[Rfam]
RNA sequence: AAUAUGGAGAUAAUGAUGUUUACAAGCACAUAGCUGAAUCUUAAUUUGUGGACUACCUCAAUGACUGAAUCUCCAUCUC
Dot-bracket structure: .(.(((.((((.........................................................)))).))).).
The family of this 79-nucleotide sequence from Salvelinus namaycush is "Small nucleolar RNA SNORD121A". NCBI's taxonomy places the organism under Eukaryota, Actinopterygii, Neopterygii, Osteoglossocephalai, Salvelinus. Pairs were carried over by alignment from the consensus structure, which was predicted with WAR. It scores 46 bits against the family's covariance model. For this family Rfam cites "snoSeeker: an advanced computational package for screening of guide and orphan snoRNA genes in the human genome" (Yang et al., Nucleic Acids Res, 2006).